[Rfam]
RNA sequence: UCAAGUCAAGGGGAGGGAUGGUCAUCCAAGGUAAGUCCGUCCAUAGGACGGCGCCAUCCCUGUCCCGCUCUCAGUUGGGCUUGGCCUUCGGGUGGAGGA
Numbered sequence: 001u002c003a004a005g006u007c008a009a010g011g012g013g014a015g016g017g018a019u020g021g022u023c024a025u026c027c028a029a030g031g032u033a034a035g036u037c038c039g040u041c042c043a044u045a046g047g048a049c050g051g052c053g054c055c056a057u058c059c060c061u062g063u064c065c066c067g068c069u070c071u072c073a074g075u076u077g078g079g080c081u082u083g084g085c086c087u088u089c090g091g092g093u094g095g096a097g098g099a
Stems, first nucleotide, its partner, number of pairs: 006091002009088004014061009035052001037051005062080001064079004
The family of this 99-nucleotide sequence is "DUF1874 RNA". By type it is a cis-regulatory element. The base pairs follow the family's consensus structure, which is taken from published work.